[Rfam]
TPP riboswitch aptamer (THI element): a 105-nucleotide RNA from Sphingomonas cremea.
Rfam links the family to the GO term thiamine pyrophosphate binding.
RNA sequence: CAGUCAUCCCCGGGGAGCCGAUAGCGGCUGAGAGGCAGUUCAUGACUGCGACCCGUCGAACCUGAUCCGGAUCAAACCGGCGUAGGGAGGGAAGUCGCCAUCGGC
Numbered sequence: 001c002a003g004u005c006a007u008c009c010c011c012g013g014g015g016a017g018c019c020g021a022u023a024g025c026g027g028c029u030g031a032g033a034g035g036c037a038g039u040u041c042a043u044g045a046c047u048g049c050g051a052c053c054c055g056u057c058g059a060a061c062c063u064g065a066u067c068c069g070g071a072u073c074a075a076a077c078c079g080g081c082g083u084a085g086g087g088a089g090g091g092a093a094g095u096c097g098c099c100a101u102c103g104g105c
Stems, first nucleotide, its partner, number of pairs: 007092004011055004017028004035049005061086004067080004
Source information:
Vitamin B(1) in its active form thiamin pyrophosphate (TPP) is an essential coenzyme that is synthesised by coupling of pyrimidine and thiazole moieties in bacteria. The organism belongs to Sphingomonas, within Bacteria.